[Rfam]
RNA sequence: CUUUCGGGAUGAAUUUUUAUUAUUCAGUUAUCCCUGUCUGAACAAUAUUGUUGAAACCAUGAAUUCUGAUAGAAAG
Numbered sequence: 001c002u003u004u005c006g007g008g009a010u011g012a013a014u015u016u017u018u019a020u021u022a023u024u025c026a027g028u029u030a031u032c033c034c035u036g037u038c039u040g041a042a043c044a045a046u047a048u049u050g051u052u053g054a055a056a057c058c059a060u061g062a063a064u065u066c067u068g069a070u071a072g073a074a075a076g
Base pairs, nucleotide, nucleotide: 001076002075003074004073005072007070